[Rfam]
RNA: Bacterial RNase P class A
Organism: Candidatus Photodesmus anomalopis
RNA sequence: GGUUAGAAUUUGGUAGUCGCUGCUUUAUCAUCUCAAUUAUCAAGGGAUUGCUAAAGGAGAGGAAAGUCCGGGCUCCAUAGAGCAGGGUGCCAGAUAAUCUCUGGAAAGCAGGAGCUUAUGACAAGUGCAGCAGAAAGAAGAUCGCCGAUGGCUAUAUUCCUAUAGAUUUAUAGGAUAUAUGUACAGGUAAGAGUGAAAGGGUACGGUAAGAGCGUACCGUGCGACUGGUAACAGUUCGUAGCUAGGUAAACUUCCACCUGGAGCAAGACCAAAUAGACUUCCGCAUUGCGUUGCUCGCGUAUGAGAAGUGGGUAGGUCGCUUGAGCCUUUGAGUGAUCACUGGCCUAGAUGAAUGACUACCUCCAUGAAUAUGGAACAGAACCCGGCUUAUAUAUUCUAACUCUGU
Numbered sequence: 001g002g003u004u005a006g007a008a009u010u011u012g013g014u015a016g017u018c019g020c021u022g023c024u025u026u027a028u029c030a031u032c033u034c035a036a037u038u039a040u041c042a043a044g045g046g047a048u049u050g051c052u053a054a055a056g057g058a059g060a061g062g063a064a065a066g067u068c069c070g071g072g073c074u075c076c077a078u079a080g081a082g083c084a085g086g087g088u089g090c091c092a093g094a095u096a097a098u099c100u101c102u103g104g105a106a107a108g109c110a111g112g113a114g115c116u117u118a119u120g121a122c123a124a125g126u127g128c129a130g131c132a133g134a135a136a137g138a139a140g141a142u143c144g145c146c147g148a149u150g151g152c153u154a155u156a157u158u159c160c161u162a163u164a165g166a167u168u169u170a171u172a173g174g175a176u177a178u179a180u181g182u183a184c185a186g187g188u189a190a191g192a193g194u195g196a197a198a199g200g201g202u203a204c205g206g207u208a209a210g211a212g213c214g215u216a217c218c219g220u221g222c223g224a225c226u227g228g229u230a231a232c233a234g235u236u237c238g239u240a241g242c243u244a245g246g247u248a249a250a251c252u253u254c255c256a257c258c259u260g261g262a263g264c265a266a267g268a269c270c271a272a273a274u275a276g277a278c279u280u281c282c283g284c285a286u287u288g289c290g291u292u293g294c295u296c297g298c299g300u301a302u303g304a305g306a307a308g309u310g311g312g313u314a315g316g317u318c319g320c321u322u323g324a325g326c327c328u329u330u331g332a333g334u335g336a337u338c339a340c341u342g343g344c345c346u347a348g349a350u351g352a353a354u355g356a357c358u359a360c361c362u363c364c365a366u367g368a369a370u371a372u373g374g375a376a377c378a379g380a381a382c383c384c385g386g387c388u389u390a391u392a393u394a395u396u397c398u399a400a401c402u403c404u405g406u
Stems, first nucleotide, its partner, number of pairs: 001402009012361007020059002023056005064389003068386005073263004080296004085259005090104005105119001106117004120254002125251002127247002142192002144188003149183002200218006219242001220240005225234003267318004277309005287301005325344003330339003